RNA sequence: CUUCUCCCCUAGGCCCAGCCCCGUGCAAGCCGGGGCCGCCGAAAGGCGCGGCGCUUACAGGAGACACG
Numbered sequence: 001c002u003u004c005u006c007c008c009c010u011a012g013g014c015c016c017a018g019c020c021c022c023g024u025g026c027a028a029g030c031c032g033g034g035g036c037c038g039c040c041g042a043a044a045g046g047c048g049c050g051g052c053g054c055u056u057a058c059a060g061g062a063g064a065c066a067c068g
Stems, first nucleotide, its partner, number of pairs: 004063004013052003016029001018036001020034003037048004
Annotation:
Rfam assigns this 68-nucleotide sequence to the family "Twister_sister_ribozyme".